[Rfam]
RNA sequence: GCCAUCUUGUCGGAGUGCCAACCGUCGAACGACGCGAGGCUGAGACCGUUAAUUCGGGAUCCGUGGAACCUGAUCAGGCUAGCACCUGCGAAGGGAAACAAGGGUAACUUGCGG
Numbered sequence: 001g002c003c004a005u006c007u008u009g010u011c012g013g014a015g016u017g018c019c020a021a022c023c024g025u026c027g028a029a030c031g032a033c034g035c036g037a038g039g040c041u042g043a044g045a046c047c048g049u050u051a052a053u054u055c056g057g058g059a060u061c062c063g064u065g066g067a068a069c070c071u072g073a074u075c076a077g078g079c080u081a082g083c084a085c086c087u088g089c090g091a092a093g094g095g096a097a098a099c100a101a102g103g104g105u106a107a108c109u110u111g112c113g114g
Stems, first nucleotide, its partner, number of pairs: 006102005011063004016057001017040003047056002069094003075088004
The record is a 114-nucleotide RNA from Aeromonas hydrophila, which matches "TPP riboswitch aptamer (THI element)" in Rfam.
Rfam's curators write: Vitamin B(1) in its active form thiamin pyrophosphate (TPP) is an essential coenzyme that is synthesised by coupling of pyrimidine and thiazole moieties in bacteria. The previously detected thiamin-regulatory element, thi box was extended, resulting in a new, highly conserved RNA secondary structure, the THI element, which is widely distributed in eubacteria and also occurs in some archaea. Analysis of operon structures identified a large number of new candidate thiamin-regulated genes, mostly transporters, in various prokaryotic organisms. The THI element is a riboswitch that directly binds to TPP to regulate gene expression through a variety of mechanisms in archaea, bacteria and eukaryotes. through a variety of mechanisms in archaea, bacteria and eukaryotes.
NCBI's taxonomy places the organism under Bacteria, Pseudomonadati, Pseudomonadota, Aeromonadaceae, Aeromonas.
Pairs were carried over by alignment from the consensus structure, which is taken from published work.